nadA riboswitch: a 54-nucleotide RNA sequence from Silvibacterium dinghuense. Taxonomically the source falls in Silvibacterium (Bacteria, Acidobacteriota, Terriglobales, Acidobacteriaceae). The family's consensus secondary structure is taken from published work. For this family Rfam cites "Structure and ligand binding of the ADP-binding domain of the NAD(+) riboswitch" (Huang et al., RNA, 2020). It is annotated as a small RNA.

[Rfam]
RNA sequence: CGGCAACAUCCCCGUCGAUUGGGUGGCUUUGGCCACAGCGAAUCGACUGCCGCG
Numbered sequence: 001c002g003g004c005a006a007c008a009u010c011c012c013c014g015u016c017g018a019u020u021g022g023g024u025g026g027c028u029u030u031g032g033c034c035a036c037a038g039c040g041a042a043u044c045g046a047c048u049g050c051c052g053c054g
Stems, first nucleotide, its partner, number of pairs: 001054002003050003011040001012038001014047007021039001023036005